Background:
This 84-nucleotide RNA from Otolemur garnettii belongs to the Rfam family "Small nucleolar RNA SNORD60".
RNA sequence: GGCCCGGGAUAAAUUGCUUUUAAUUUCUGGCAACUAGUAUGAAAGCUACACAUGUGCUCUGAUUAUUUUAUGAGACUAAGGCUU
Dot-bracket structure: ((((........................................(.(((....))).).....................)))).
The match comes from Rfam's covariance-model search (61 bits). A reference for the family is Galardi et al. (2002), "Purified box C/D snoRNPs are able to reproduce site-specific 2'-O-methylation of target RNA in vitro", Mol Cell Biol. Rfam classes the family as a C/D-box small nucleolar RNA. The family's consensus secondary structure was predicted with PFOLD.